[Rfam]
RNA sequence: GGGGAACAUCCAAAAGCUGAGAUGGUACCUGAUACAAUCUUCCUACAGAAACCUCUGUAGUUUCCUGCUUGCGGUUCUUGAGAAGGUUUCUGCAAGUCUCAAAUUACAAGAUACAUAC
Numbered sequence: 001g002g003g004g005a006a007c008a009u010c011c012a013a014a015a016g017c018u019g020a021g022a023u024g025g026u027a028c029c030u031g032a033u034a035c036a037a038u039c040u041u042c043c044u045a046c047a048g049a050a051a052c053c054u055c056u057g058u059a060g061u062u063u064c065c066u067g068c069u070u071g072c073g074g075u076u077c078u079u080g081a082g083a084a085g086g087u088u089u090c091u092g093c094a095a096g097u098c099u100c101a102a103a104u105u106a107c108a109a110g111a112u113a114c115a116u117a118c
Base pairs, nucleotide, nucleotide: 001030002029003028005026007024008023009022010021054111055110056109067097068096069095070094071093072092073091074090077086078085

Notes:
This 118-nucleotide sequence from Nyssa sinensis belongs to the Rfam family "Small nucleolar RNA snoR104". The family's RNA type in Rfam is H/ACA-box small nucleolar RNA. Rfam 15.1 lists 612 matches to the family in 228 species. Rfam links the family to the GO terms RNA processing and nucleolus.